Source information
c-di-AMP riboswitch aptamer (ydaO/yuaA leader): a 137-nucleotide sequence from Micromonospora sonchi.

[Rfam]
RNA sequence: GGUCCGGCACCGCCGAGUCGCUGCCCGAGCGAGCCGGGGAACCAGGUACCCGGGGUGAGUCCGCGAUGCGCGCGGUAGGGCGUCCCCUUCCCGCCCGAACCCGUCAGCUAACCCGGUAGGCGGUAUGGGAAGAAGGA
Number, nucleotide and partner (000 for none) at each position: 001g000002g000003u000004c000005c000006g000007g000008c000009a000010c000011c122012g121013c120014c119015g000016a000017g000018u032019c031020g030021c029022u028023g000024c000025c000026c000027g000028a022029g021030c020031g019032a018033g117034c116035c115036g114037g113038g112039g000040a000041a000042c000043c052044a000045g000046g000047u000048a000049c000050c000051c000052g043053g102054g101055g100056u000057g000058a000059g000060u000061c075062c074063g073064c072065g000066a000067u000068g000069c000070g000071c000072g064073c063074g062075g061076u000077a000078g096079g095080g094081c093082g000083u000084c000085c000086c000087c000088u000089u000090c000091c000092c000093g081094c080095c079096c078097g000098a000099a000100c055101c054102c053103g000104u000105c000106a000107g000108c000109u000110a000111a000112c038113c037114c036115g035116g034117u033118a000119g014120g013121c012122g011123g000124u000125a000126u000127g000128g000129g000130a000131a000132g000133a000134a000135g000136g000137a000
This family represents a conserved RNA structure found upstream of the ydaO and yuaA genes in Bacillus subtilis and related genes in other bacteria. The organism belongs to Micromonospora, within Bacteria.